[Rfam]
RNA: mir-67 microRNA precursor family
RNA sequence: UAUUGUGGUGACUCACUCAACUUGGGUGUGAUGUUUUUACUAUCCGUCACAACCUCCUUGAGUGAGCGAUUACGAUA
Numbered sequence: 001u002a003u004u005g006u007g008g009u010g011a012c013u014c015a016c017u018c019a020a021c022u023u024g025g026g027u028g029u030g031a032u033g034u035u036u037u038u039a040c041u042a043u044c045c046g047u048c049a050c051a052a053c054c055u056c057c058u059u060g061a062g063u064g065a066g067c068g069a070u071u072a073c074g075a076u077a
Stems, first nucleotide, its partner, number of pairs: 009068002012066009024054002027051007